The family of this 68-nucleotide sequence from Alligator sinensis is "Mammalian CPEB3 ribozyme". Pairs were carried over by alignment from the consensus structure, which is taken from published work. The match comes from Rfam's covariance-model search (36 bits).
RNA sequence: GUUGCAAGUUCAAGGUCACAGCAGAAAGCAUAGCCCUGUCAGAUUCCAGGGAAUCUGUGAAUUCUGCU
Numbered sequence: 001g002u003u004g005c006a007a008g009u010u011c012a013a014g015g016u017c018a019c020a021g022c023a024g025a026a027a028g029c030a031u032a033g034c035c036c037u038g039u040c041a042g043a044u045u046c047c048a049g050g051g052a053a054u055c056u057g058u059g060a061a062u063u064c065u066g067c068u
Stems, first nucleotide, its partner, number of pairs: 014035003020068007040057007
The source organism's lineage runs through Eukaryota, Opisthokonta, Sarcopterygii, Archelosauria and Alligator.